[Rfam]
Shown here is an 86-nucleotide RNA from Brenthis ino, a member of the family "tRNA". On this family, see Hou, Trends Biochem Sci 1993: "The tertiary structure of tRNA and the development of the genetic code".

RNA sequence: GACUCGUUAGCUCAGUAGGUUAGGGCGCCGAUAUAUAAUUUAAACUUGACCAUCGGAGGGCGGAGGUUCAAAUCCUUCACGAGUCA
Numbered sequence: 001g002a003c004u005c006g007u008u009a010g011c012u013c014a015g016u017a018g019g020u021u022a023g024g025g026c027g028c029c030g031a032u033a034u035a036u037a038a039u040u041u042a043a044a045c046u047u048g049a050c051c052a053u054c055g056g057a058g059g060g061c062g063g064a065g066g067u068u069c070a071a072a073u074c075c076u077u078c079a080c081g082a083g084u085c086a
Stems, first nucleotide, its partner, number of pairs: 001085007010026004028056005062078005